[Rfam]
RNA sequence: CCCUUAUCGUUUAAAAGUUUCAAGUUGGUCCCUUAUCUUUUUUUUAGGUUUCCAGUUGGUCCCUUCCGUCAAUUUUUAACUAUUUCCGUUAAAUUUGGACACGUGGCACACUUGGACAGAUGACACGUGUCCAACUUUAACGGUAACAGUAAAAAAAUUGACGGAAGGGACCAACUUGAAACCUAAAAAAAAGAUAUGGGACCAACUUGAAACUUUUAAAAGAUAAGGGA
Number, nucleotide and partner (000 for none) at each position: 001c000002c228003c227004u226005u225006a224007u223008c222009g000010u000011u000012u000013a000014a000015a000016a000017g000018u000019u000020u000021c000022a000023a207024g206025u205026u000027g203028g202029u201030c000031c199032c198033u000034u196035a195036u194037c193038u192039u191040u190041u189042u188043u187044u000045u185046a184047g183048g000049u000050u000051u000052c000053c000054a000055g000056u000057u000058g000059g000060u000061c000062c000063c000064u000065u000066c000067c000068g000069u000070c000071a000072a000073u000074u000075u000076u000077u000078a000079a000080c000081u000082a000083u000084u000085u000086c000087c000088g000089u000090u000091a000092a000093a000094u000095u000096u000097g000098g000099a000100c000101a000102c000103g000104u000105g000106g000107c000108a000109c000110a000111c000112u000113u000114g000115g000116a000117c000118a000119g000120a000121u000122g000123a000124c000125a000126c000127g000128u000129g000130u000131c000132c000133a000134a000135c000136u000137u000138u000139a000140a000141c000142g000143g000144u000145a000146a000147c000148a000149g000150u000151a000152a000153a000154a000155a000156a000157a000158u000159u000160g000161a000162c000163g000164g000165a000166a000167g000168g000169g000170a000171c000172c000173a000174a000175c000176u000177u000178g000179a000180a000181a000182c000183c047184u046185a045186a000187a043188a042189a041190a040191a039192a038193g037194a036195u035196a034197u000198g032199g031200g000201a029202c028203c027204a000205a025206c024207u023208u000209g000210a000211a000212a000213c000214u000215u000216u000217u000218a000219a000220a000221a000222g008223a007224u006225a005226a004227g003228g002229g000230a000
RNA: MIR2655 microRNA precursor family